[Rfam]
RNA sequence: CGAAUGGUACCAGAAAGGACCAUAUCGAUAUGUGGUCAAAGCGCUGAGCAAAAGAUUUAUACCUGAACGCUUGUACCUUUAAAGGACUGAGACGGAAAG
Numbered sequence: 001c002g003a004a005u006g007g008u009a010c011c012a013g014a015a016a017g018g019a020c021c022a023u024a025u026c027g028a029u030a031u032g033u034g035g036u037c038a039a040a041g042c043g044c045u046g047a048g049c050a051a052a053a054g055a056u057u058u059a060u061a062c063c064u065g066a067a068c069g070c071u072u073g074u075a076c077c078u079u080u081a082a083a084g085g086a087c088u089g090a091g092a093c094g095g096a097a098a099g
Base pairs, nucleotide, nucleotide: 001027002026003025004023005022006021007020008019010018011017068094069093070091071090072089073088077085078084
The family of this 99-nucleotide RNA from Desulfosporosinus sp. Tol-M is "pan motif". NCBI's taxonomy places the organism under Bacteria, Bacillota, Clostridia, Eubacteriales, Desulfosporosinus. A search with the family's covariance model found it, with a score of 37 bits. By type it is a cis-regulatory element.